[Rfam]
RNA: THF-II riboswitch (folE RNA)
Organism: Limoniibacter endophyticus
RNA sequence: CCGUUCAACUCGUCGCGCCAUCGAGCGGGACUACGGGAG
Numbered sequence: 001c002c003g004u005u006c007a008a009c010u011c012g013u014c015g016c017g018c019c020a021u022c023g024a025g026c027g028g029g030a031c032u033a034c035g036g037g038a039g
Stems, first nucleotide, its partner, number of pairs: 001036004012031003016027003